The family of this 144-nucleotide RNA from Rhododendron williamsianum is "Small nucleolar RNA snoR136". It is annotated as an H/ACA-box small nucleolar RNA. The family has 8 seed sequences and 452 matches in Rfam 15.1. NCBI's taxonomy places the organism under Eukaryota, Tracheophyta, Euphyllophyta, Spermatophyta, Rhododendron. A search with the family's covariance model found it, with a score of 68 bits.
[Rfam]
RNA sequence: GUGGCUUCACUUUGUAAAUACGGUUCUGCUUGCACAGAUACGAUGAUGUUUGUGUGGGGCUGUUUCAAGUGGAGCUAGAAAUUGUUCCCCUCGCUAUCCGGUGAGUCAUUUUAUGGUUCAUCUGGACGUUGGGGAACCACAUUC
Numbered sequence: 001g002u003g004g005c006u007u008c009a010c011u012u013u014g015u016a017a018a019u020a021c022g023g024u025u026c027u028g029c030u031u032g033c034a035c036a037g038a039u040a041c042g043a044u045g046a047u048g049u050u051u052g053u054g055u056g057g058g059g060c061u062g063u064u065u066c067a068a069g070u071g072g073a074g075c076u077a078g079a080a081a082u083u084g085u086u087c088c089c090c091u092c093g094c095u096a097u098c099c100g101g102u103g104a105g106u107c108a109u110u111u112u113a114u115g116g117u118u119c120a121u122c123u124g125g126a127c128g129u130u131g132g133g134g135a136a137c138c139a140c141a142u143u144c
Base pairs, nucleotide, nucleotide: 002078003076004075005074008071009070010069011068012067016064017063026059027058029056031054032053033052036051037050038049084137085136086135087134088133089132090131092128093127097126098125099124100123101122106116107115108114